[Rfam]
The family of this 399-nucleotide sequence from Herbiconiux salviae is "transfer-messenger RNA". The match comes from Rfam's covariance-model search (161 bits). Its family is annotated with RNA catabolic process in the Gene Ontology. The family is grouped with related families in Rfam's "tRNA clan". Taxonomically the source falls in Herbiconiux (Bacteria, Actinomycetota, Actinomycetes, Micrococcales). Rfam classes the family as a non-coding RNA gene.
RNA sequence: GGGGAUGAUCGGUUUCGACAUCGCCUGCGAAACGACGAGAAGCGGGUCGAGGAUGCGGGGUUAUCUCGUUAACGCCCUCCGCAACCUAUAAGUGCCAAUUCCAACAGCACUGUUCCGGCUAAGAAGGCCGCCUUCGCCCUCGCGGCGUAAGGUCCCCUUACCUAGCACUUAGGAACUGUCGGUCCGGGAAUGCUCUCUACCCGGGUUCCGGCAUCAGCUAGAGAGCUUGCUGCGUGAUCGUGUCUCAGGGUCACGCGGGACUCUUACUGUGACUGGGCCCGUCGACCUAGCUGCCUGUGGCAAAGGUCGGGGCCGAGCAGAACGCCUGCACAGGCUACACCCGUAGAAGACGUGGGAUCACAGCGAUGGACGGGGGUUCAAUUCCCCCCAUCUCCACCC
Numbered sequence: 001g002g003g004g005a006u007g008a009u010c011g012g013u014u015u016c017g018a019c020a021u022c023g024c025c026u027g028c029g030a031a032a033c034g035a036c037g038a039g040a041a042g043c044g045g046g047u048c049g050a051g052g053a054u055g056c057g058g059g060g061u062u063a064u065c066u067c068g069u070u071a072a073c074g075c076c077c078u079c080c081g082c083a084a085c086c087u088a089u090a091a092g093u094g095c096c097a098a099u100u101c102c103a104a105c106a107g108c109a110c111u112g113u114u115c116c117g118g119c120u121a122a123g124a125a126g127g128c129c130g131c132c133u134u135c136g137c138c139c140u141c142g143c144g145g146c147g148u149a150a151g152g153u154c155c156c157c158u159u160a161c162c163u164a165g166c167a168c169u170u171a172g173g174a175a176c177u178g179u180c181g182g183u184c185c186g187g188g189a190a191u192g193c194u195c196u197c198u199a200c201c202c203g204g205g206u207u208c209c210g211g212c213a214u215c216a217g218c219u220a221g222a223g224a225g226c227u228u229g230c231u232g233c234g235u236g237a238u239c240g241u242g243u244c245u246c247a248g249g250g251u252c253a254c255g256c257g258g259g260a261c262u263c264u265u266a267c268u269g270u271g272a273c274u275g276g277g278c279c280c281g282u283c284g285a286c287c288u289a290g291c292u293g294c295c296u297g298u299g300g301c302a303a304a305g306g307u308c309g310g311g312g313c314c315g316a317g318c319a320g321a322a323c324g325c326c327u328g329c330a331c332a333g334g335c336u337a338c339a340c341c342c343g344u345a346g347a348a349g350a351c352g353u354g355g356g357a358u359c360a361c362a363g364c365g366a367u368g369g370a371c372g373g374g375g376g377u378u379c380a381a382u383u384c385c386c387c388c389c390a391u392c393u394c395c396a397c398c399c
Stems, first nucleotide, its partner, number of pairs: 001395007019368005025363003033355001035353003043343005048068005054083007146152001177213006183205006190198001192226006230258009242273003246269001276314005283309003290301002293335004297329003372388005